[Rfam]
RNA sequence: UGGUGAAUAACAGCGUAAUUCUCCUUUGGCAAAAGAGAACUGCAUUGACAUGCAUACAAGUGUUAAGGUUGUUUUUGCUUUCGCCAAAGGAGAAUUGCCCUGCCAUUCACUU
Numbered sequence: 001u002g003g004u005g006a007a008u009a010a011c012a013g014c015g016u017a018a019u020u021c022u023c024c025u026u027u028g029g030c031a032a033a034a035g036a037g038a039a040c041u042g043c044a045u046u047g048a049c050a051u052g053c054a055u056a057c058a059a060g061u062g063u064u065a066a067g068g069u070u071g072u073u074u075u076u077g078c079u080u081u082c083g084c085c086a087a088a089g090g091a092g093a094a095u096u097g098c099c100c101u102g103c104c105a106u107u108c109a110c111u112u
Stems, first nucleotide, its partner, number of pairs: 005108004011102003015098005021092004027086004032081004
Annotation
This 112-nucleotide RNA from Corymbia citriodora belongs to the Rfam family "mir-399 microRNA precursor family". The match comes from Rfam's covariance-model search (64 bits). The family's consensus secondary structure was predicted with PFOLD. mir-399 was identified in both Arabidopsis thaliana and Oryza sativa computationally and was later experimentally verified. mir-399 is thought to target mRNAs coding for a phosphatase transporter. The mature sequence is excised from the 3' arm of the hairpin.